[Rfam]
RNA sequence: CCUGGCAGUGAUGCCACACUUGCCCUCACUGAGAACUCUGUUCAAUAAUGAGCCUCUCUGCUGUGCUUGGAGCAGCUGAGCCAGA
Number, nucleotide and partner (000 for none) at each position: 001c000002c084003u083004g082005g081006c080007a000008g000009u000010g000011a000012u000013g000014c000015c000016a000017c000018a000019c000020u000021u000022g000023c000024c000025c000026u000027c000028a000029c000030u000031g000032a000033g000034a000035a000036c000037u000038c000039u000040g000041u000042u000043c000044a000045a000046u000047a000048a000049u000050g000051a000052g000053c000054c000055u000056c000057u000058c000059u000060g000061c000062u000063g000064u000065g000066c000067u000068u000069g000070g000071a000072g000073c000074a000075g000076c000077u000078g000079a000080g006081c005082c004083a003084g002085a000
Shown here is an 85-nucleotide RNA sequence from Rhadina sibilatrix, a member of the family "Small nucleolar RNA SNORD103/SNORD85". Rfam classes the family as a C/D-box small nucleolar RNA. The match comes from Rfam's covariance-model search (66 bits). The organism belongs to Rhadina, within Eukaryota. The pairing is the family consensus, mapped onto this sequence.